Shown here is an 81-nucleotide RNA from Variovorax sp. PDC80, a member of the family "ZMP/ZTP riboswitch aptamer (pfl RNA motif)".
The match comes from Rfam's covariance-model search (64 bits).
The organism belongs to Variovorax, within Bacteria.
Pairs were carried over by alignment from the consensus structure, which is taken from published work.
RNA sequence: GCGUCGCCGCGCAACUGGCGAACGGAUGGAGCACCAUCGGGGAGCGCGGCCAUCGUCACGCCGAUCGCCUGGGCAUGUCUG
Numbered sequence: 001g002c003g004u005c006g007c008c009g010c011g012c013a014a015c016u017g018g019c020g021a022a023c024g025g026a027u028g029g030a031g032c033a034c035c036a037u038c039g040g041g042g043a044g045c046g047c048g049g050c051c052a053u054c055g056u057c058a059c060g061c062c063g064a065u066c067g068c069c070u071g072g073g074c075a076u077g078u079c080u081g
Stems, first nucleotide, its partner, number of pairs: 003053002006050007015041002017069005026037004058076001060074003